[Rfam]
RNA: DUF3800-XI RNA
RNA sequence: UGGACUGGCCGCGCGCGACCUGGGUCCACCAAAUAGCGGGUAAGACACCC
Numbered sequence: 001u002g003g004a005c006u007g008g009c010c011g012c013g014c015g016c017g018a019c020c021u022g023g024g025u026c027c028a029c030c031a032a033a034u035a036g037c038g039g040g041u042a043a044g045a046c047a048c049c050c
Base pairs, nucleotide, nucleotide: 001028002027003026004025005024006023007020008019010017